[Rfam]
RNA sequence: AUUUUUAUAGGCAAUGAUGUCUGCCUUGAACCGCUUCUAAUUAUGAAUGCUGAUGACGUCUAACAUAAU
Numbered sequence: 001a002u003u004u005u006u007a008u009a010g011g012c013a014a015u016g017a018u019g020u021c022u023g024c025c026u027u028g029a030a031c032c033g034c035u036u037c038u039a040a041u042u043a044u045g046a047a048u049g050c051u052g053a054u055g056a057c058g059u060c061u062a063a064c065a066u067a068a069u
Stems, first nucleotide, its partner, number of pairs: 010025004016060006033050002036047001
RNA: Fluoride riboswitch aptamer (crcB RNA motif)